[Rfam]
Shown here is a 592-nucleotide part of an RNA from Neospora caninum, a member of the family "Eukaryotic large subunit ribosomal RNA". Lineage of the source: Eukaryota > Conoidasida > Coccidia > Eimeriorina > Neospora. Pairs were carried over by alignment from the consensus structure, which is taken from published work.
RNA sequence: CGGGGAAAGAAGACCCUGUUGAGCUUGACUCUAGUCCGACUUUGUGAAAUGACUUAGGAGGUGUAGCAUAAGUGGGAGCUUCGGCGCUCGUGAAAUACCACUACUCUUAAUGUCGUUUUACUUAUUCCGUUAGUUGAGACUCAUGCUCUGCAUGUGUUUUGGAUUUAAGGUGGCUUUUGCCGCUGAUCUACGCGGAAGACACAGUCAGGUUGGGAGUUUGGCUGGGGCGGCACAUCUGUGAAAAAUAGCGCAGGUGUCCUAAGGCAAGCUCAAUGAGAACAGAAAUCUCAUGUUGACCAAAAGGGGAAAAGCUUGCUUGAUUUUGAUUUUCAGUACGAAUACAAACUGUGAAAGCAUGGCCUAUCGAUCCUUUAGGUCUGAGAAACUUUCAGCUAGAGGUGUCAGAAAAGUUACCACAGGGAUAACUGGCUUGUGGCAGCCAAGCGUUCAUAGCGACGUUGCUUUUUGAUCCUUCGAUGUCGGCUCUUCCUAUCAUUGAGACGCAGAAGUCUCAAAGUGUCGGAUUGUUCACCCGCCAAUAGGGAACGUGAGCUGGGUUUAGACCGUCGUGAGACAGGUUAGUUUUACCCUA
Numbered sequence: 001c002g003g004g005g006a007a008a009g010a011a012g013a014c015c016c017u018g019u020u021g022a023g024c025u026u027g028a029c030u031c032u033a034g035u036c037c038g039a040c041u042u043u044g045u046g047a048a049a050u051g052a053c054u055u056a057g058g059a060g061g062u063g064u065a066g067c068a069u070a071a072g073u074g075g076g077a078g079c080u081u082c083g084g085c086g087c088u089c090g091u092g093a094a095a096u097a098c099c100a101c102u103a104c105u106c107u108u109a110a111u112g113u114c115g116u117u118u119u120a121c122u123u124a125u126u127c128c129g130u131u132a133g134u135u136g137a138g139a140c141u142c143a144u145g146c147u148c149u150g151c152a153u154g155u156g157u158u159u160u161g162g163a164u165u166u167a168a169g170g171u172g173g174c175u176u177u178u179g180c181c182g183c184u185g186a187u188c189u190a191c192g193c194g195g196a197a198g199a200c201a202c203a204g205u206c207a208g209g210u211u212g213g214g215a216g217u218u219u220g221g222c223u224g225g226g227g228c229g230g231c232a233c234a235u236c237u238g239u240g241a242a243a244a245a246u247a248g249c250g251c252a253g254g255u256g257u258c259c260u261a262a263g264g265c266a267a268g269c270u271c272a273a274u275g276a277g278a279a280c281a282g283a284a285a286u287c288u289c290a291u292g293u294u295g296a297c298c299a300a301a302a303g304g305g306g307a308a309a310a311g312c313u314u315g316c317u318u319g320a321u322u323u324u325g326a327u328u329u330u331c332a333g334u335a336c337g338a339a340u341a342c343a344a345a346c347u348g349u350g351a352a353a354g355c356a357u358g359g360c361c362u363a364u365c366g367a368u369c370c371u372u373u374a375g376g377u378c379u380g381a382g383a384a385a386c387u388u389u390c391a392g393c394u395a396g397a398g399g400u401g402u403c404a405g406a407a408a409a410g411u412u413a414c415c416a417c418a419g420g421g422a423u424a425a426c427u428g429g430c431u432u433g434u435g436g437c438a439g440c441c442a443a444g445c446g447u448u449c450a451u452a453g454c455g456a457c458g459u460u461g462c463u464u465u466u467u468g469a470u471c472c473u474u475c476g477a478u479g480u481c482g483g484c485u486c487u488u489c490c491u492a493u494c495a496u497u498g499a500g501a502c503g504c505a506g507a508a509g510u511c512u513c514a515a516a517g518u519g520u521c522g523g524a525u526u527g528u529u530c531a532c533c534c535g536c537c538a539a540u541a542g543g544g545a546a547c548g549u550g551a552g553c554u555g556g557g558u559u560u561a562g563a564c565c566g567u568c569g570u571g572a573g574a575c576a577g578g579u580u581a582g583u584u585u586u587a588c589c590c591u592a
Stems, first nucleotide, its partner, number of pairs: 003591003007586002015420004020416002022412005028217004035209002038206004044121010054110007071102005078085002125197005134190001136188002142154005169184005220233001221231003234255006258359002264316006270296002273291006297306002321345003326340004347356003370398006378392004429470001431468001433467001435463006444454002481556001482554004486548001487545005494519002497514006521535003525531001562580004566575003